[Rfam]
Rfam assigns this 92-nucleotide RNA sequence from Enhydrobacter aerosaccus to the family "Selenocysteine transfer RNA".

RNA sequence: GGAGGGGAAUCGCUCCCGGUGGGGCGGCUGGCCUUCAAAGCCAGAGAGGGUCGCCAGACGGCUCUUAGUGGGUUCGACUCCCACUCUCUUCC
Numbered sequence: 001g002g003a004g005g006g007g008a009a010u011c012g013c014u015c016c017c018g019g020u021g022g023g024g025c026g027g028c029u030g031g032c033c034u035u036c037a038a039a040g041c042c043a044g045a046g047a048g049g050g051u052c053g054c055c056a057g058a059c060g061g062c063u064c065u066u067a068g069u070g071g072g073u074u075c076g077a078c079u080c081c082c083a084c085u086c087u088c089u090u091c092c
Base pairs, nucleotide, nucleotide: 001092002091003090004089005088006087007086008085011026012025013024014023015022016021028044029043030042031041032040047065048064049063050062051061069083070082071081072080